RNA sequence: UGAACGCAAGACUGUAAAUCGCUAUGGAUAAAAGUGUCUGCUAAAUGGCAUAUC
Numbered sequence: 001u002g003a004a005c006g007c008a009a010g011a012c013u014g015u016a017a018a019u020c021g022c023u024a025u026g027g028a029u030a031a032a033a034g035u036g037u038c039u040g041c042u043a044a045a046u047g048g049c050a051u052a053u054c
Base pairs, nucleotide, nucleotide: 013043014041015040016039020036021035022034023033025031
The family of this 54-nucleotide RNA from Hucho hucho is "UnaL2 LINE 3' element". It scores 58 bits against the family's covariance model. The organism belongs to Hucho, within Eukaryota.